[Rfam]
RNA sequence: GUAGGUUUCCAAUUUCCUAAAAGAAUUGGUGGUGCGGAUGGGGAAUUUUUCUCCGCCUGUUUCCUAGUUCAGUCAAAACUAGGUGGCGAGCCUAGCA
Numbered sequence: 001g002u003a004g005g006u007u008u009c010c011a012a013u014u015u016c017c018u019a020a021a022a023g024a025a026u027u028g029g030u031g032g033u034g035c036g037g038a039u040g041g042g043g044a045a046u047u048u049u050u051c052u053c054c055g056c057c058u059g060u061u062u063c064c065u066a067g068u069u070c071a072g073u074c075a076a077a078a079c080u081a082g083g084u085g086g087c088g089a090g091c092c093u094a095g096c097a
Stems, first nucleotide, its partner, number of pairs: 009029007039055003043051002057072003063083006
Record summary:
This 97-nucleotide sequence belongs to the Rfam family "wcaG RNA".